Rfam assigns this 233-nucleotide RNA from Phrynocephalus forsythii to the family "Small nucleolar RNA SNORA53". The base pairs follow the family's consensus structure, which was predicted with RNAalifold. It scores 177 bits against the family's covariance model. The snoRNA ACA53 belongs to the H/ACA family of pseudouridylation guide snoRNAs. Lineage of the source: Eukaryota > Amniota > Unidentata > Toxicofera > Phrynocephalus. By type it is an H/ACA-box small nucleolar RNA.
RNA sequence: AACAUGCUCCCUUAGAUCCAUCUUUGUUGAUCCCUCAUGUGCUGAGUUCUGAUUGAAGCUUUAGUUUUGAGCAGUUCCACCUUAGAGGGAUCAGCAACUUUAUGGUUGUACAGUCAAAGAUGCUUGAGUCAUUGGCAUGUGAGAGUAAUAUACCUUCACUCUAGUCUCAUGUUCUGAUGGAAAUGACUAUGUGUCAUUUUUGGCUGUCAGGAUUUAGCUGGAGUGUGGACAUA
Dot-bracket structure: .(((((((..(((((...((((((((.(((((..((.(..(.((.(..(((...(((((....)))))...)))..))).)..)))..)))))((((((....)))))).....)))))))).))))).....))))))).............((.((..(.(((.......((((((((...(.(..............).))))))))).....))).)..)).)).....